Description: A member of the RNA family "Plastid-ccsA-ndhD-2 3UTR RNA" from Pleuropterus multiflorus, 53 nucleotides long. The family's RNA type in Rfam is cis-regulatory element. Rfam's curators put it in the seed alignment. Rfam describes the family as follows. Plastid ccsA-ndhD-2 is a non-coding RNA (ncRNA) recognised in plastids. It was found in the three prime untranslated region (3UTR) of ccsA and ndhD genes, its 3UTR location suggests a role in transcript maturation.
RNA sequence: GUCUCGUCGAGAACCAUUUGAAUCAAGUAGUAUAGUGAUUCAAAUGGUUCUCA
Numbered sequence: 001g002u003c004u005c006g007u008c009g010a011g012a013a014c015c016a017u018u019u020g021a022a023u024c025a026a027g028u029a030g031u032a033u034a035g036u037g038a039u040u041c042a043a044a045u046g047g048u049u050c051u052c053a
Stems, first nucleotide, its partner, number of pairs: 009052017